[Rfam]
A member of the RNA family "LOOT RNA", 124 nucleotides long. The sequence is in the family's curated seed alignment.

RNA sequence: AGCCUAAACCUAGAGAUUAUUCUAUAGGCAUGGCACUAAAUAUACCCACCUGCAUUCUGAACCCGUCGUUCAGCUCCAUGCAGGUGGUCUAUACCCGAAAGGGUAUAGGAAGGCGAAAGCCUUC
Numbered sequence: 001a002g003c004c005u006a007a008a009c010c011u012a013g014a015g016a017u018u019a020u021u022c023u024a025u026a027g028g029c030a031u032g033g034c035a036c037u038a039a040a041u042a043u044a045c046c047c048a049c050c051u052g053c054a055u056u057c058u059g060a061a062c063c064c065g066u067c068g069u070u071c072a073g074c075u076c077c078a079u080g081c082a083g084g085u086g087g088u089c090u091a092u093a094c095c096c097g098a099a100a101g102g103g104u105a106u107a108g109g110a111a112g113g114c115g116a117a118a119g120c121c122u123u124c
Stems, first nucleotide, its partner, number of pairs: 002034003009028004014023002046087010057073006089108008109124006